[Rfam]
RNA sequence: AAGUUGUAUGUGAGGAUUGGAGAAAAUUAAAUAAAAUAGCUUGUUUGAUGCAUUUUGUUUAAUUUUCUCCAAUAUCUCAUAUCCAACCU
Numbered sequence: 001a002a003g004u005u006g007u008a009u010g011u012g013a014g015g016a017u018u019g020g021a022g023a024a025a026a027u028u029a030a031a032u033a034a035a036a037u038a039g040c041u042u043g044u045u046u047g048a049u050g051c052a053u054u055u056u057g058u059u060u061a062a063u064u065u066u067c068u069c070c071a072a073u074a075u076c077u078c079a080u081a082u083c084c085a086a087c088c089u
Stems, first nucleotide, its partner, number of pairs: 004086003008082001011079004016073006023066008032057002